[Rfam]
RNA sequence: CAGUUAAAAAGCUCGUAGUUGAAAUUCGAGUCAGUUACUAGUUGGCUCUUCGUCAAUUAGUUAAUUGAUUCUCCGUCUAUAAUCCCUUUUGCGCUUUAGGGUUGCAGCUGGGUGAGUAGACAAUUUACCUUGAAAAAAUUAGAGUGUUCCAGGCAGGUCUUCGCCGGAAUACAUUAGCAUGGAAUAAUGGAAUAGGACUUGGGUCUUUUGUUGGUUUUAGGACUUAAGUAAUGAUUAAUAGGGACAGAUGGGGGCAUUAGUAUUUAAUUGUCAGAGGUGAAAUUCUUGGAUUUAUUAAAGACUAACUUAUGCGAAAGCAUUUGCCAAGGAUGUUUUCAUUAAUCAAGAACGAAAGUUAGGGGAUCAAAGACGAUCAGAUACCGUCGUAGUCUUAACUAUAAACUAUACCGACUCGAGAUCGGAAGGGUAAUAUAUUAGUCCCUUUCGGCAUCGUAAGAGAAAUCAAAGUCUUUGGGUUCUGGGGGGAGUAUGGUCGCAAGGCUGAAACUUAAAGGAAU
Numbered sequence: 001c002a003g004u005u006a007a008a009a010a011g012c013u014c015g016u017a018g019u020u021g022a023a024a025u026u027c028g029a030g031u032c033a034g035u036u037a038c039u040a041g042u043u044g045g046c047u048c049u050u051c052g053u054c055a056a057u058u059a060g061u062u063a064a065u066u067g068a069u070u071c072u073c074c075g076u077c078u079a080u081a082a083u084c085c086c087u088u089u090u091g092c093g094c095u096u097u098a099g100g101g102u103u104g105c106a107g108c109u110g111g112g113u114g115a116g117u118a119g120a121c122a123a124u125u126u127a128c129c130u131u132g133a134a135a136a137a138a139u140u141a142g143a144g145u146g147u148u149c150c151a152g153g154c155a156g157g158u159c160u161u162c163g164c165c166g167g168a169a170u171a172c173a174u175u176a177g178c179a180u181g182g183a184a185u186a187a188u189g190g191a192a193u194a195g196g197a198c199u200u201g202g203g204u205c206u207u208u209u210g211u212u213g214g215u216u217u218u219a220g221g222a223c224u225u226a227a228g229u230a231a232u233g234a235u236u237a238a239u240a241g242g243g244a245c246a247g248a249u250g251g252g253g254g255c256a257u258u259a260g261u262a263u264u265u266a267a268u269u270g271u272c273a274g275a276g277g278u279g280a281a282a283u284u285c286u287u288g289g290a291u292u293u294a295u296u297a298a299a300g301a302c303u304a305a306c307u308u309a310u311g312c313g314a315a316a317g318c319a320u321u322u323g324c325c326a327a328g329g330a331u332g333u334u335u336u337c338a339u340u341a342a343u344c345a346a347g348a349a350c351g352a353a354a355g356u357u358a359g360g361g362g363a364u365c366a367a368a369g370a371c372g373a374u375c376a377g378a379u380a381c382c383g384u385c386g387u388a389g390u391c392u393u394a395a396c397u398a399u400a401a402a403c404u405a406u407a408c409c410g411a412c413u414c415g416a417g418a419u420c421g422g423a424a425g426g427g428u429a430a431u432a433u434a435u436u437a438g439u440c441c442c443u444u445u446c447g448g449c450a451u452c453g454u455a456a457g458a459g460a461a462a463u464c465a466a467a468g469u470c471u472u473u474g475g476g477u478u479c480u481g482g483g484g485g486g487a488g489u490a491u492g493g494u495c496g497c498a499a500g501g502c503u504g505a506a507a508c509u510u511a512a513a514g515g516a517a518u
Base pairs, nucleotide, nucleotide: 001481002480003479009478011350013348014347018343019342020341241337242336243335244334245332246331249328253325254324255323256322259303260302263299264298265297266296267295268294270292274285275284276283308319311318312317355396356395357394358393359392360391365389369385370384371383372382407477408476409475410470411469412468414453415452416451419448420447421446422445423444424443425442426441427440457464458463483510484509485508492503493502494501495500
Eukaryotic small subunit ribosomal RNA: a 518-nucleotide part of an RNA from Paramecium sonneborni.
Gene Ontology terms of the family: structural constituent of ribosome and ribosome.
NCBI's taxonomy places the organism under Eukaryota, Alveolata, Oligohymenophorea, Peniculida, Paramecium.